[Rfam]
RNA sequence: ACUUUUUACGAGGUAUCAGCACUUUUCUUUCAUUAGUGGGGAAGGAAGGAUGAAAAAUACAAAGCAGCAGUAGACUUUUAAAGUUUAAAUAGACAGGUCUGAGUGCCUGAACGGGCUCUUCCAUUUUACUUUAACCCCCCAAAGAAGUUUUCUUAUCCCGUUUCACUGCUGAUCAGCAAGGGUAAGUGGCAAG
Dot-bracket structure: ..((..(((...)))..)).........(((.((.(.(((((((....((((...((..............((((((.................))))))(..((......))..)..)).))))...))))..))).).)).)))...........(.((((..(((.....)))...))).......)..)
The family of this 193-nucleotide sequence from Tinamus guttatus is "Connexin-43 internal ribosome entry site (IRES)". Gene Ontology term of the family: ribosome binding. Rfam describes the family as follows. This family represents the connexin-43 internal ribosome entry site (IRES) which allows cap independent translation during conditions such as heat shock and stress. Pairs were carried over by alignment from the consensus structure, which is taken from published work.